[Rfam]
RNA sequence: UUCUUAUCGAGAGAAGCUGAGGGACUGACCCUGUGACGCUUCGGCAACCAGCGGCCAUCACCCAUGCGGCGGGCGGGCUGCCCGGUGCCAAUUUCAGAGGAACGCGGAAGCGGAUCCGAAGAUGAGAA
Numbered sequence: 001u002u003c004u005u006a007u008c009g010a011g012a013g014a015a016g017c018u019g020a021g022g023g024a025c026u027g028a029c030c031c032u033g034u035g036a037c038g039c040u041u042c043g044g045c046a047a048c049c050a051g052c053g054g055c056c057a058u059c060a061c062c063c064a065u066g067c068g069g070c071g072g073g074c075g076g077g078c079u080g081c082c083c084g085g086u087g088c089c090a091a092u093u094u095c096a097g098a099g100g101a102a103c104g105c106g107g108a109a110g111c112g113g114a115u116c117c118g119a120a121g122a123u124g125a126g127a128a
Stems, first nucleotide, its partner, number of pairs: 001128008013042005021031003025097004043089004048085002051081006093120001099117003103113001

The record is a 128-nucleotide sequence from Paenalicyclobacillus macrosporangiidus, which matches "SAM riboswitch aptamer (S box leader)" in Rfam. Gene Ontology term of the family: regulation of gene expression. The SAM riboswitch is found upstream of a number of genes which code for proteins involved in methionine or cysteine biosynthesis in Gram-positive bacteria.